[Rfam]
RNA: MIR8565 microRNA precursor family
RNA sequence: CCUACACCCAUGUGUGUAGAACUCCAAAAGAUCACCAUUAAAUUUGACACAGAUCUCUAGAAAAGUUAUCAUAUGGGUGUGAAACUUAACUUUUCUAGAGAUCUGUAUCAAAGUUAAUGGUGAUUCUUUAGGGUCCUGCACACAUGCGUGUGGG
Number, nucleotide and partner (000 for none) at each position: 001c000002c153003u152004a151005c150006a149007c148008c000009c146010a145011u144012g143013u142014g000015u140016g139017u138018a137019g136020a000021a134022c133023u132024c131025c000026a129027a128028a127029a000030g125031a124032u123033c000034a121035c120036c119037a118038u117039u116040a115041a114042a000043u112044u111045u110046g109047a108048c000049a106050c105051a104052g103053a102054u101055c100056u099057c098058u097059a096060g095061a094062a093063a092064a091065g090066u089067u088068a087069u082070c081071a080072u079073a078074u000075g000076g000077g000078u073079g072080u071081g070082a069083a000084a000085c000086u000087u068088a067089a066090c065091u064092u063093u062094u061095c060096u059097a058098g057099a056100g055101a054102u053103c052104u051105g050106u049107a000108u047109c046110a045111a044112a043113g000114u041115u040116a039117a038118u037119g036120g035121u034122g000123a032124u031125u030126c000127u028128u027129u026130a000131g024132g023133g022134u021135c000136c019137u018138g017139c016140a015141c000142a013143c012144a011145u010146g009147c000148g007149u006150g005151u004152g003153g002154g000